[Rfam]
RNA sequence: GUGACCCUGGGCAAGUUCCUGAAGAUCAGACACAUCAGAUCCCUUAUCUGUAAAAUGGGCAUGAUCCAGGAACCUGCCUCUACGGUUGC
Numbered sequence: 001g002u003g004a005c006c007c008u009g010g011g012c013a014a015g016u017u018c019c020u021g022a023a024g025a026u027c028a029g030a031c032a033c034a035u036c037a038g039a040u041c042c043c044u045u046a047u048c049u050g051u052a053a054a055a056u057g058g059g060c061a062u063g064a065u066c067c068a069g070g071a072a073c074c075u076g077c078c079u080c081u082a083c084g085g086u087u088g089c
Stems, first nucleotide, its partner, number of pairs: 001089006009079005015073007024066005033057003036050005
Dot-bracket structure: ((((((..(((((.(((((((..(((((....((((((((.....)))))....)))....)))))))))))).)))))....))))))
RNA: mir-640 microRNA precursor family
Organism: Homo sapiens